RNA sequence: UGACAACAUCUCCAGAAUCUCUGCAUAGUUGUGAUGAUUUGUUUGAACCAUUUGAAGCUGAUGACUCCCCUAUGUGUAGUC
Numbered sequence: 001u002g003a004c005a006a007c008a009u010c011u012c013c014a015g016a017a018u019c020u021c022u023g024c025a026u027a028g029u030u031g032u033g034a035u036g037a038u039u040u041g042u043u044u045g046a047a048c049c050a051u052u053u054g055a056a057g058c059u060g061a062u063g064a065c066u067c068c069c070c071u072a073u074g075u076g077u078a079g080u081c
Stems, first nucleotide, its partner, number of pairs: 002081003006077004
The family of this 81-nucleotide RNA from Eleutherodactylus coqui is "Small nucleolar RNA MBII-202". Taxonomically the source falls in Eleutherodactylus (Eukaryota, Tetrapoda, Hyloidea, Eleutherodactylinae). Gene Ontology terms of the family: RNA processing and nucleolus. The family has 30 seed sequences and 745 matches in Rfam 15.1. A search with the family's covariance model found it, with a score of 41 bits.